[Rfam]
RNA: mir-34 microRNA precursor family
RNA sequence: GGUUUGUAGGCAGUGUAGUUAGCUGAUUGUAUCCGUUUCCUCGAGCAAUCACUAGCUUCACUGUUAUCAAAAC
Numbered sequence: 001g002g003u004u005u006g007u008a009g010g011c012a013g014u015g016u017a018g019u020u021a022g023c024u025g026a027u028u029g030u031a032u033c034c035g036u037u038u039c040c041u042c043g044a045g046c047a048a049u050c051a052c053u054a055g056c057u058u059c060a061c062u063g064u065u066a067u068c069a070a071a072a073c
Stems, first nucleotide, its partner, number of pairs: 003071004009065002012062004017057006024051007
Dot-bracket structure: ..((((..((.((((.((((((.(((((((..............))))))))))))).)))).))..))))..